[Rfam]
RNA: Flavivirus 3' UTR cis-acting replication element (CRE)
RNA sequence: GUGGGAAAGACCAGAGACUCCAUGAGUUUCCACCACGCUGGCCGCCAGGCACAGAUCGCCGAACUUCGGCGGCCGGUGUGGGGAAAUCCAUGGUUUCU
Dot-bracket structure: .(((......))).(((..((............((((((((.(((..(((.......)))........))).))))))))...........))..)))
Numbered sequence: 001g002u003g004g005g006a007a008a009g010a011c012c013a014g015a016g017a018c019u020c021c022a023u024g025a026g027u028u029u030c031c032a033c034c035a036c037g038c039u040g041g042c043c044g045c046c047a048g049g050c051a052c053a054g055a056u057c058g059c060c061g062a063a064c065u066u067c068g069g070c071g072g073c074c075g076g077u078g079u080g081g082g083g084a085a086a087u088c089c090a091u092g093g094u095u096u097c098u
Stems, first nucleotide, its partner, number of pairs: 002013003015098003020093002034080008043071003048060003